[Rfam]
Source information:
The record is an 89-nucleotide sequence from Lucilia cuprina, which matches "mir-316 microRNA precursor family" in Rfam. Rfam links the family to the GO terms miRNA-mediated post-transcriptional gene silencing and RISC complex. A search with the family's covariance model found it, with a score of 82 bits. A reference for the family is Stark et al. (2007), "Systematic discovery and characterization of fly microRNAs using 12 Drosophila genomes", Genome Res.

RNA sequence: AGAUUCUAGUUGAUUUGUCUUUUUCCGCUUACUGGCGCUGUUAUUUAAAGACGACAGGAAAGGGAAAAAGGCGUAUAGACUAAGAAGAC
Numbered sequence: 001a002g003a004u005u006c007u008a009g010u011u012g013a014u015u016u017g018u019c020u021u022u023u024u025c026c027g028c029u030u031a032c033u034g035g036c037g038c039u040g041u042u043a044u045u046u047a048a049a050g051a052c053g054a055c056a057g058g059a060a061a062g063g064g065a066a067a068a069a070g071g072c073g074u075a076u077a078g079a080c081u082a083a084g085a086a087g088a089c
Stems, first nucleotide, its partner, number of pairs: 008081003013076001017072001019070007028062003032057003036053002038050002